The record is a 106-nucleotide RNA, which matches "SL2 RNA" in Rfam. Gene Ontology term of the family: mRNA trans splicing, via spliceosome. Clan: SL clan. Rfam's curators write: This family represents SL2 RNA. SL2 RNA is involved in trans splicing in lower eukaryotes. Trans-splicing is a form of RNA processing. The acquisition of a spliced leader from a SL RNA is a intra-molecular reaction which precisely joins exons derived from separately transcribed RNAs. Approximately 25% of C. elegans genes are organised into polycistronic transcription units and the presence of SL2 on an mRNA is an indication the the gene is in an operon. Pairs were carried over by alignment from the consensus structure, which is taken from published work. A reference for the family is Dassanayake et al. (2001), "Trans-spliced leader RNA, 5S-rRNA genes and novel variant orphan spliced-leader of the lymphatic filarial nematode Wuchereria bancrofti, and a sensitive polymerase chain reaction based detection assay", Gene.
[Rfam]
RNA sequence: GGUUUUAACCCAGUUAACCAAGGUUAGCAUGGAAUUCGAUCUCUCGAAAGAGUGUGUCGAUAAAAUAAUUUUUGCAACGCUUCUUCGGGGUAUCCGUUGGAGCAAA
Numbered sequence: 001g002g003u004u005u006u007a008a009c010c011c012a013g014u015u016a017a018c019c020a021a022g023g024u025u026a027g028c029a030u031g032g033a034a035u036u037c038g039a040u041c042u043c044u045c046g047a048a049a050g051a052g053u054g055u056g057u058c059g060a061u062a063a064a065a066u067a068a069u070u071u072u073u074g075c076a077a078c079g080c081u082u083c084u085u086c087g088g089g090g091u092a093u094c095c096g097u098u099g100g101a102g103c104a105a106a
Base pairs, nucleotide, nucleotide: 007036008035009032010031013028014027016025017024018023037059038058039057040056041054043052044051045050081104083102084101085100086099087098088097089095090094